[Rfam]
Nucleotides: 095
Base pairs, nucleotide, nucleotide: 002091003090004089005088006087007086008085010084011083015079016075017074018073019072020071033061034060035059037057038056
Number, partner (000 for none) and nucleotide at each position: 001000g002091g003090c004089u005088g006087g007086u008085c009000u010084a011083a012000g013000g014000a015079u016075a017074g018073u019072g020071g021000a022000u023000u024000a025000u026000c027000a028000g029000a030000a031000u032000u033061u034060a035059c036000u037057a038056a039000c040000a041000u042000c043000a044000g045000u046000g047000u048000c049000a050000c051000u052000a053000a054000a055000g056038u057037u058000g059035g060034u061033a062000u063000a064000c065000a066000a067000c068000u069000u070000c071020c072019c073018a074017c075016u076000g077000c078000u079015a080000a081000a082000u083011u084010u085008g086007a087006c088005u089004g090003g091002c092000a093000a094000a095000a
Record summary
Shown here is a 95-nucleotide RNA sequence from Piliocolobus tephrosceles, a member of the family "Y RNA". It is annotated as a non-coding RNA gene.